[Rfam]
RNA sequence: GGGUGGGGCGCCAUGGGGGUGCCUCAGGGAAUCGCGCAGGUCGGGCCGCCGCG
Number, nucleotide and partner (000 for none) at each position: 001g000002g000003g000004u000005g025006g024007g023008g022009c021010g020011c019012c018013a000014u000015g000016g000017g000018g012019g011020u010021g009022c008023c007024u006025c005026a000027g000028g000029g000030a000031a000032u000033c000034g000035c053036g052037c051038a000039g050040g049041u048042c000043g000044g000045g000046c000047c000048g041049c040050c039051g037052c036053g035
This 53-nucleotide RNA sequence from Comamonas antarctica belongs to the Rfam family "nhaA-I RNA". Rfam's curators write: Acidobacteria, Alphaproteobacteria, Betaproteobacteria and Gammaproteobacteria, Verrucomicrobia, cand. division NC10. The match comes from Rfam's covariance-model search (53 bits). Lineage of the source: Bacteria > Betaproteobacteria > Burkholderiales > Comamonadaceae > Comamonas. It is annotated as a riboswitch.